RNA: Archaeal large subunit ribosomal RNA, nucleotides 1919 to 2360
Organism: Absidia repens
RNA sequence: GGUAGUAGCAAAUAUUCAAAUGAGAUCUUUGAAGACUGAAGUGGAGAAAGGUUCCUGGAGAACAGUAGUUGGUCCAGGGUAAGUCGCUCCUAAGAGAUAGGGAAGUUCUGUUUUAAAUGAUUCUUUAUUGAAUCAGUCUAUCGAAAGGGAAGCUGGUUAAUAUUCCAGCACUGGGAUGAGGAAUUUAGGCGGUAACGGCCAAAAGAACUUGGGGACAUUGGUAUGAAGCCCGGAAAGAGUUAUCUUUUCUUUUUAACAGUCUUAAUGGCCCCUGAAAACGGUUUAGCCGGAGCAAGGGGACAUUGGCUGGUAAAGCAGAUCUUUUUUUGAUCUGUCCGGUGCCUUUAUAGCGAUCCUUGAAAACCCAAGGGACAAAAUAAUUUUCUCGCCCAGGCGUACUCAUAACCGCAGCAGGUCUCCAAGGUUAACAGCCUCUAGUUGA
Numbered sequence: 001g002g003u004a005g006u007a008g009c010a011a012a013u014a015u016u017c018a019a020a021u022g023a024g025a026u027c028u029u030u031g032a033a034g035a036c037u038g039a040a041g042u043g044g045a046g047a048a049a050g051g052u053u054c055c056u057g058g059a060g061a062a063c064a065g066u067a068g069u070u071g072g073u074c075c076a077g078g079g080u081a082a083g084u085c086g087c088u089c090c091u092a093a094g095a096g097a098u099a100g101g102g103a104a105g106u107u108c109u110g111u112u113u114u115a116a117a118u119g120a121u122u123c124u125u126u127a128u129u130g131a132a133u134c135a136g137u138c139u140a141u142c143g144a145a146a147g148g149g150a151a152g153c154u155g156g157u158u159a160a161u162a163u164u165c166c167a168g169c170a171c172u173g174g175g176a177u178g179a180g181g182a183a184u185u186u187a188g189g190c191g192g193u194a195a196c197g198g199c200c201a202a203a204a205g206a207a208c209u210u211g212g213g214g215a216c217a218u219u220g221g222u223a224u225g226a227a228g229c230c231c232g233g234a235a236a237g238a239g240u241u242a243u244c245u246u247u248u249c250u251u252u253u254u255a256a257c258a259g260u261c262u263u264a265a266u267g268g269c270c271c272c273u274g275a276a277a278a279c280g281g282u283u284u285a286g287c288c289g290g291a292g293c294a295a296g297g298g299g300a301c302a303u304u305g306g307c308u309g310g311u312a313a314a315g316c317a318g319a320u321c322u323u324u325u326u327u328u329g330a331u332c333u334g335u336c337c338g339g340u341g342c343c344u345u346u347a348u349a350g351c352g353a354u355c356c357u358u359g360a361a362a363a364c365c366c367a368a369g370g371g372a373c374a375a376a377a378u379a380a381u382u383u384u385c386u387c388g389c390c391c392a393g394g395c396g397u398a399c400u401c402a403u404a405a406c407c408g409c410a411g412c413a414g415g416u417c418u419c420c421a422a423g424g425u426u427a428a429c430a431g432c433c434u435c436u437a438g439u440u441g442a
Stems, first nucleotide, its partner, number of pairs: 016032005034440004043420004049400002054078006063071002085396003089148002094142002097139001152169005172392004177388004211366003217354004222349004228342002230339003233253006257309004269299005279289003321329001406415002422434003